[Rfam]
Nucleotides: 084
Base pairs, nucleotide, nucleotide: 001084002083003082005080006079007078008077
Number, partner (000 for none) and nucleotide at each position: 001084g002083g003082c004000c005080a006079g007078g008077g009000g010000g011000a012000a013000g014000a015000a016000a017000a018000a019000a020000a021000u022000a023000u024000a025000g026000g027000c028000u029000g030000a031000a032000a033000c034000a035000u036000u037000u038000a039000g040000u041000a042000u043000g044000g045000g046000c047000a048000a049000g050000c051000a052000g053000a054000g055000a056000g057000u058000u059000a060000g061000a062000a063000a064000g065000a066000u067000u068000c069000g070000c071000a072000c073000u074000u075000a076000a077008c078007c079006c080005u081000a082003g083002c084001u

Source information:
Rfam assigns this 84-nucleotide sequence from Lentivirus humimdef1 to the family "HIV gag stem loop 3 (GSL3)". From the family's description: This family consists of several HIV gag stem loop 3 (GSL3) sequences. GSL3 is known to direct specific packaging of HIV-1 genomic RNA. Deletion of GSL3 leads to decreases in both viral RNA packaging and dimerisation. Rfam classes the family as a cis-regulatory element. A reference for the family is Damgaard et al. (2004), "RNA interactions in the 5' region of the HIV-1 genome", J Mol Biol.